[Rfam]
Nucleotides: 151
Stems, first nucleotide, its partner, number of pairs: 011137004018030003031132006041067002068117003076091004094111004
Number, partner (000 for none) and nucleotide at each position: 001000a002000a003000u004000a005000c006000c007000u008000g009000g010000a011137c012136g013135c014134u015000u016000a017000a018030u019029u020028u021000c022000a023000c024000a025000a026000u027000g028020a029019a030018a031132u032131c033130g034129g035128g036127g037000g038000a039000a040000c041067c042066a043000a044000u045000c046000u047000u048000c049000u050000g051000c052000g053000g054000c055000a056000u057000a058000c059000a060000g061000c062000c063000g064000c065000u066042u067041g068117g069116g070115g071000u072000g073000a074000a075000u076091c077090c078089a079088u080000c081000u082000g083000a084000a085000a086000a087000g088079g089078u090077g091076g092000c093000a094111g095110g096109g097108c098000a099000g100000c101000u102000c103000u104000c105000a106000u107000a108097g109096c110095c111094c112000g113000a114000a115070u116069c117068c118000g119000a120000c121000a122000g123000c124000u125000a126000a127036c128035c129034c130033c131032g132031a133000a134014a135013g136012c137011g138000c139000a140000g141000u142000g143000a144000g145000g146000g147000a148000a149000a150000u151000c
c-di-AMP riboswitch aptamer (ydaO/yuaA leader): a 151-nucleotide RNA from Metabacillus indicus.
This family represents a conserved RNA structure found upstream of the ydaO and yuaA genes in Bacillus subtilis and related genes in other bacteria. The ydaO/yuaA element is thought to act as a genetic 'off' switch for the ydaO and yuaA genes in its native state. It is believed that the element may be triggered during osmotic shock leading to activation of ydaO, a predicted amino acid transporter gene, and members of the yuaA-yubG operon which code for KtrA and KtrB K+ transporters.
Pairs were carried over by alignment from the consensus structure.